[Rfam]
RNA sequence: ACUCAACAAUUACACAUUUGAGAAGGGUGAGUUUAAGCUGUAAAAGCAAGCCGUCUUAGAACGGAUCCUUGAUCAGUUUGUUAACCCUAAACCUGUCAUUAGGGGUUU
Number, nucleotide and partner (000 for none) at each position: 001a000002c000003u000004c000005a000006a000007c000008a000009a000010u000011u000012a000013c000014a000015c000016a000017u000018u000019u000020g000021a000022g000023a000024a088025g087026g086027g085028u084029g000030a000031g000032u000033u000034u000035a079036a078037g077038c076039u075040g000041u000042a000043a000044a070045a069046g068047c000048a000049a000050g000051c064052c063053g062054u061055c000056u000057u000058a000059g000060a000061a054062c053063g052064g051065a000066u000067c000068c046069u045070u044071g000072a000073u000074c000075a039076g038077u037078u036079u035080g000081u000082u000083a000084a028085c027086c026087c025088u024089a000090a000091a000092c000093c000094u000095g000096u000097c000098a000099u000100u000101a000102g000103g000104g000105g000106u000107u000108u000

This 108-nucleotide RNA from Mesonia sp. K7 belongs to the Rfam family "6S-Flavo RNA".